A member of the RNA family "Metazoan signal recognition particle RNA" from Caenorhabditis auriculariae, 299 nucleotides long. The literature on the family includes a 2002 paper in Nucleic Acids Res by Regalia et al., "Prediction of signal recognition particle RNA genes". A search with the family's covariance model found it, with a score of 234 bits. About the family: The signal recognition particle (SRP) is a universally conserved ribonucleoprotein. It is involved in the co-translational targeting of proteins to membranes. The base pairs follow the family's consensus structure, which is taken from published work. The organism belongs to Caenorhabditis, within Eukaryota.
RNA sequence: ACCGGGCGCCGUGGCGGGCGCCUGUAAGCCAGCUUCUAGGCGGUAGACCGGAGUGGAUGAAGUGAGGGGAGGAGUCCUGCGAGAGUUGCUGGCGACGGCGACCGGGCGUCCGCGCCAAACGCCGCGUCGCCAAGGGCCAACCGACGGAGGUCGGAGGGUCCUGGGCGUCAUAAGGAGAGGCGUACGGCUCAGGGCCGAGAGGCAGCAGGCAAAAGCUUCCGCGCGGUGUAGUGGCCGGACCGCGCCUGUGAGUCGUCACUCUCUCGCAGCCUCCCCAAUACCUUCAGACCUCCGGUCGC
Number, nucleotide and partner (000 for none) at each position: 001a044002c043003c042004g023005g022006g021007c020008g019009c018010c017011g000012u000013g000014g000015c000016g000017g010018g009019c008020g007021c006022c005023u004024g000025u000026a000027a000028g041029c040030c039031a000032g000033c000034u000035u000036c000037u000038a000039g030040g029041c028042g003043g002044u001045a000046g297047a296048c295049c294050g293051g292052a291053g290054u000055g000056g000057a000058u286059g285060a284061a283062g282063u000064g000065a000066g276067g275068g274069g273070a272071g271072g270073a000074g000075u000076c000077c269078u268079g267080c266081g265082a264083g263084a262085g000086u000087u000088g259089c000090u000091g000092g256093c255094g254095a253096c252097g000098g000099c000100g000101a000102c000103c248104g247105g246106g245107c244108g243109u242110c238111c237112g000113c000114g235115c234116c233117a232118a000119a229120c228121g227122c226123c225124g224125c223126g222127u221128c167129g166130c165131c164132a000133a162134g161135g160136g159137c158138c157139a000140a000141c154142c153143g152144a151145c150146g000147g000148a000149g000150g145151u144152c143153g142154g141155a000156g000157g138158g137159u136160c135161c134162u133163g000164g131165g130166c129167g128168u175169c174170a000171u000172a000173a000174g169175g168176a000177g219178a218179g217180g216181c215182g000183u000184a000185c000186g000187g210188c209189u208190c000191a000192g000193g000194g203195c202196c201197g000198a000199g000200a000201g196202g195203c194204a000205g000206c000207a000208g189209g188210c187211a000212a000213a000214a000215g181216c180217u179218u178219c177220c000221g127222c126223g125224c124225g123226g122227u121228g120229u119230a000231g000232u117233g116234g115235c114236c000237g111238g110239a000240c000241c000242g109243c108244g107245c106246c105247u104248g103249u000250g000251a000252g096253u095254c094255g093256u092257c000258a000259c088260u000261c000262u084263c083264u082265c081266g080267c079268a078269g077270c072271c071272u070273c069274c068275c067276c066277a000278a000279u000280a000281c000282c062283u061284u060285c059286a058287g000288a000289c000290c053291u052292c051293c050294g049295g048296u047297c046298g000299c000
Its Rfam clan is "SRP clan".